This 408-nucleotide RNA from Sandarakinorhabdus cyanobacteriorum belongs to the Rfam family "Bacterial RNase P class A". Rfam classes the family as a ribozyme. The organism belongs to Sandarakinorhabdus, within Bacteria. A search with the family's covariance model found it, with a score of 261 bits.
RNA sequence: UCACGUCGUCGGGCGGCCGCGUCGGGAGCAAUCCCGCCGAGGAAAGUCCGGGCUCCACGGAACGCGGUGCCGGGUAACACCCGGCGGCAUUGGCUUUGGCCAGUGUCAGGGACAGUGCCACAGAGAAGAGACCGCCGAUGGUCCCGGAUCAUAUCCGGGAGACAGGCAAGGGUGAAACGGUGCGGCAAGAGCGCACCGCGCGAUGGGCAACCAAAGCGGCACGGCAAACCCCACCGGGAGCAAGACCGAAUAGGGAUGGCGCGCAGGGCUUUGGCGCUGCAGGGCAGGAACCGGCCCAGCCAUCCGGGUUGGUUGCUGGAGGCGGCGGGCAACCGCCGUCCGAGAGGAAUGGUCGCCCAGGGGGCAUGAGCCCCUGGACAGAACCCGGCUUACAGACGGCGUGAUCGC
Dot-bracket structure: ((((((((((((((((((.((.(((((....))))).))....[[[.[[[[[((((.....[..((((((((((.....)))))((((((((((....))))))))).)((...(((((............(((((....(((.................))).)))..)).......((((((.......))))))((((..(((....)))..))).)..)))..)))))))))))))...((((......((((((............]...........................)))))).....))))......((((((((....))))))))..........)))))))..........................]]]]]]]].).))))))))))....
Numbered sequence: 001u002c003a004c005g006u007c008g009u010c011g012g013g014c015g016g017c018c019g020c021g022u023c024g025g026g027a028g029c030a031a032u033c034c035c036g037c038c039g040a041g042g043a044a045a046g047u048c049c050g051g052g053c054u055c056c057a058c059g060g061a062a063c064g065c066g067g068u069g070c071c072g073g074g075u076a077a078c079a080c081c082c083g084g085c086g087g088c089a090u091u092g093g094c095u096u097u098g099g100c101c102a103g104u105g106u107c108a109g110g111g112a113c114a115g116u117g118c119c120a121c122a123g124a125g126a127a128g129a130g131a132c133c134g135c136c137g138a139u140g141g142u143c144c145c146g147g148a149u150c151a152u153a154u155c156c157g158g159g160a161g162a163c164a165g166g167c168a169a170g171g172g173u174g175a176a177a178c179g180g181u182g183c184g185g186c187a188a189g190a191g192c193g194c195a196c197c198g199c200g201c202g203a204u205g206g207g208c209a210a211c212c213a214a215a216g217c218g219g220c221a222c223g224g225c226a227a228a229c230c231c232c233a234c235c236g237g238g239a240g241c242a243a244g245a246c247c248g249a250a251u252a253g254g255g256a257u258g259g260c261g262c263g264c265a266g267g268g269c270u271u272u273g274g275c276g277c278u279g280c281a282g283g284g285c286a287g288g289a290a291c292c293g294g295c296c297c298a299g300c301c302a303u304c305c306g307g308g309u310u311g312g313u314u315g316c317u318g319g320a321g322g323c324g325g326c327g328g329g330c331a332a333c334c335g336c337c338g339u340c341c342g343a344g345a346g347g348a349a350u351g352g353u354c355g356c357c358c359a360g361g362g363g364g365c366a367u368g369a370g371c372c373c374c375u376g377g378a379c380a381g382a383a384c385c386c387g388g389c390u391u392a393c394a395g396a397c398g399g400c401g402u403g404a405u406c407g408c
Stems, first nucleotide, its partner, number of pairs: 001404010011393001012357007020039002023036005044391003048388005053240004062272001065236005070084005085109001086107009110231002115229002117225003132171002134167003141163003179197006198220001199218003204213003244314004254305006321340008